[Rfam]
The family of this 59-nucleotide RNA sequence from Thalassotalea sp. PP2-459 is "L31-Gammaproteobacteria ribosomal protein leader". Clan: Ribosomal Protein L31 Leader clan.
RNA sequence: CGUAUGGUGCUUAGCGAAAUUGGUUCGACUGAGUGGCGAUACGGCCCAUAUUUAGAGGU
Numbered sequence: 001c002g003u004a005u006g007g008u009g010c011u012u013a014g015c016g017a018a019a020u021u022g023g024u025u026c027g028a029c030u031g032a033g034u035g036g037c038g039a040u041a042c043g044g045c046c047c048a049u050a051u052u053u054a055g056a057g058g059u
Stems, first nucleotide, its partner, number of pairs: 001043005007037002011032004015027004